[Rfam]
RNA sequence: UCUAACUUAAGCAACAUAGUCCCAACCUGCUACUAUGUCCUUGCAGCCCUUUAGCAUGCGCCAGUGUGAAAAAGUAUCUUCAAAAACAC
Number, nucleotide and partner (000 for none) at each position: 001u000002c000003u000004a000005a000006c000007u000008u000009a000010a000011g000012c000013a000014a000015c000016a000017u000018a000019g000020u000021c000022c000023c000024a000025a000026c000027c000028u000029g000030c000031u000032a000033c000034u000035a000036u068037g067038u000039c000040c064041u063042u060043g059044c058045a057046g055047c054048c000049c000050u000051u000052u000053a000054g047055c046056a000057u045058g044059c043060g042061c000062c000063a041064g040065u000066g000067u037068g036069a000070a000071a000072a000073a000074g000075u000076a000077u000078c000079u000080u000081c000082a000083a000084a000085a000086a000087c000088a000089c000
Shown here is an 89-nucleotide RNA from Solibacillus sp. R5-41, a member of the family "BsrC". On this family, see Saito et al., Gene 2008: "Novel small RNA-encoding genes in the intergenic regions of Bacillus subtilis". Lineage of the source: Bacteria > Bacillati > Bacilli > Caryophanaceae > Solibacillus. It scores 44 bits against the family's covariance model. About the family: The 301 nucleotide sequence from Kouji Nakamura has been trimmed to a highly conserved ~85 nucleotide long core to form this family.